Notes:
Purine riboswitch aptamer: a 103-nucleotide RNA sequence from Lysinibacillus composti. The match comes from Rfam's covariance-model search (73 bits). A reference for the family is Mandal et al. (2003), "Riboswitches Control Fundamental Biochemical Pathways in Bacillus subtilis and Other Bacteria", Cell. Taxonomically the source falls in Lysinibacillus (Bacteria, Bacillati, Bacillota, Bacilli).
[Rfam]
RNA sequence: AAAAUAAUAAUAGGCUGCCUUCAUAUAAGUCCGAUAAUAUGGUUCGGAUGUUUCUACUAAGUUACCUAAAAUAACUUAUGCUAUGAGGGCGGAUACAAGCAUG
Dot-bracket structure: .................((((((((...((((((.........))))))........(((((((.......)))))))...))))))))..............